[Rfam]
RNA sequence: AACCCAAGUCCGCAAAGGACAUCGGGGCCACGGAGGACCGGGCGACGCGCCCGUGCCGCCACACGGCCCCUAGGGGUGAACGCACACCGGAACGGCCGCAGGCCGGCACGGUGCGCAGGGCUACCUCUCAGCCCCAACCCGACAGCUGACUUCGCAGGCGUGUGUGGAGAGGAAAU
Numbered sequence: 001a002a003c004c005c006a007a008g009u010c011c012g013c014a015a016a017g018g019a020c021a022u023c024g025g026g027g028c029c030a031c032g033g034a035g036g037a038c039c040g041g042g043c044g045a046c047g048c049g050c051c052c053g054u055g056c057c058g059c060c061a062c063a064c065g066g067c068c069c070c071u072a073g074g075g076g077u078g079a080a081c082g083c084a085c086a087c088c089g090g091a092a093c094g095g096c097c098g099c100a101g102g103c104c105g106g107c108a109c110g111g112u113g114c115g116c117a118g119g120g121c122u123a124c125c126u127c128u129c130a131g132c133c134c135c136a137a138c139c140c141g142a143c144a145g146c147u148g149a150c151u152u153c154g155c156a157g158g159c160g161u162g163u164g165u166g167g168a169g170a171g172g173a174a175a176u
Stems, first nucleotide, its partner, number of pairs: 003158002008029001010027001031154005074140003081115004118134004
Rfam assigns this 176-nucleotide RNA from Tomitella fengzijianii to the family "c-di-AMP riboswitch aptamer (ydaO/yuaA leader)". The match comes from Rfam's covariance-model search (41 bits). Taxonomically the source falls in Tomitella (Bacteria, Actinomycetota, Actinomycetes, Mycobacteriales).